[Rfam]
RNA sequence: AUAAGUCUAGGGAAUGAAUGUCUCCCUUAGUUUUAUACUAAAACCGCAAUUGCUGAUGACUUCUACAACUUU
Number, nucleotide and partner (000 for none) at each position: 001a000002u000003a000004a000005g000006u000007c000008u000009a000010g026011g025012g024013a023014a000015u000016g063017a062018a061019u000020g060021u059022c058023u013024c012025c011026c010027u000028u000029a000030g000031u000032u000033u000034u000035a000036u000037a000038c000039u000040a000041a000042a000043a000044c000045c000046g053047c052048a000049a000050u000051u000052g047053c046054u000055g000056a000057u000058g022059a021060c020061u018062u017063c016064u000065a000066c000067a000068a000069c000070u000071u000072u000
RNA: Fluoride riboswitch aptamer (crcB RNA motif)